[Rfam]
RNA sequence: GCCCGGAUGAGCCAUGGUGGACCGUGGGACGGACUUCAAAUCCGUUGGCGUCUUGCGACGUAGUAGUUCGAUUCUACCUUUCGGGU
Numbered sequence: 001g002c003c004c005g006g007a008u009g010a011g012c013c014a015u016g017g018u019g020g021a022c023c024g025u026g027g028g029a030c031g032g033a034c035u036u037c038a039a040a041u042c043c044g045u046u047g048g049c050g051u052c053u054u055g056c057g058a059c060g061u062a063g064u065a066g067u068u069c070g071a072u073u074c075u076a077c078c079u080u081u082c083g084g085g086u
Stems, first nucleotide, its partner, number of pairs: 001086007009078001012027006028046006048061005063077004